The record is a 78-nucleotide sequence from Scleropages formosus, which matches "mir-460 microRNA precursor family" in Rfam. NCBI's taxonomy places the organism under Eukaryota, Craniata, Euteleostomi, Osteoglossocephala, Scleropages.
RNA sequence: UUUCCCCGCCUCCUCAUUGUGCAUGCUGUGUGUUUCCAUCCUUGUCCGCACAGCGCCUGCAAUGUGGAGGCCAAGGAU
Numbered sequence: 001u002u003u004c005c006c007c008g009c010c011u012c013c014u015c016a017u018u019g020u021g022c023a024u025g026c027u028g029u030g031u032g033u034u035u036c037c038a039u040c041c042u043u044g045u046c047c048g049c050a051c052a053g054c055g056c057c058u059g060c061a062a063u064g065u066g067g068a069g070g071c072c073a074a075g076g077a078u
Stems, first nucleotide, its partner, number of pairs: 012067002015064007024055001026053006